Shown here is a 36-nucleotide RNA, a member of the family "XIST RNA A repeat".
Rfam classes the family as a small RNA.

RNA sequence: UUGCCUAUCGGGGCCGUGGAUACCUGCUUUUUUUUU
Numbered sequence: 001u002u003g004c005c006u007a008u009c010g011g012g013g014c015c016g017u018g019g020a021u022a023c024c025u026g027c028u029u030u031u032u033u034u035u036u
Stems, first nucleotide, its partner, number of pairs: 003014004017026003